[Rfam]
Notes
Shown here is a 125-nucleotide RNA sequence from Cavia porcellus, a member of the family "Small nucleolar RNA SNORA61". Rfam links the family to the GO terms nucleolus and RNA processing. Rfam's curators write: ACA61 is a member of the H/ACA class of snoRNA that guide the sites of modification of uridines to pseudouridines.

RNA sequence: ACCCUCCAGUCCCAUCGGAUCUAAACACUGGUCUUGGUGGUCGUUAAAGGAGGGAAAGGAAUGCUGAAGCUGGCCUCACAGCCUUAUAGUCUGGUGUACUGCAGGUGGGCUAGUUUCAAACAGGG
Number, nucleotide and partner (000 for none) at each position: 001a000002c000003c053004c052005u051006c050007c049008a000009g000010u000011c000012c040013c039014a038015u037016c036017g000018g033019a032020u031021c030022u000023a000024a000025a000026c000027a000028c000029u000030g021031g020032u019033c018034u000035u000036g016037g015038u014039g013040g012041u000042c000043g000044u000045u000046a000047a000048a000049g007050g006051a005052g004053g003054g000055a000056a000057a000058g000059g000060a000061a000062u000063g000064c000065u000066g000067a000068a000069g000070c113071u112072g111073g110074c109075c108076u107077c000078a000079c000080a000081g000082c000083c000084u000085u103086a000087u101088a000089g000090u000091c000092u000093g000094g000095u000096g000097u000098a000099c000100u000101g087102c000103a085104g000105g000106u000107g076108g075109g074110c073111u072112a071113g070114u000115u000116u000117c000118a000119a000120a000121c000122a000123g000124g000125g000